[Rfam]
RNA sequence: AGCUGAUGCAUCGCGUGGCGGCUUAGGCCGGUUCCACCGCAGCAGCUGUUCCCCUCUGGAGGUUAUAGACCUUCAAAACUUGAAAAGGGCCCUGGUCUCCAGUGGCCCUCUUUU
Numbered sequence: 001a002g003c004u005g006a007u008g009c010a011u012c013g014c015g016u017g018g019c020g021g022c023u024u025a026g027g028c029c030g031g032u033u034c035c036a037c038c039g040c041a042g043c044a045g046c047u048g049u050u051c052c053c054c055u056c057u058g059g060a061g062g063u064u065a066u067a068g069a070c071c072u073u074c075a076a077a078a079c080u081u082g083a084a085a086a087g088g089g090c091c092c093u094g095g096u097c098u099c100c101a102g103u104g105g106c107c108c109u110c111u112u113u114u
Stems, first nucleotide, its partner, number of pairs: 001047005007041003015037004057075007086109006092102004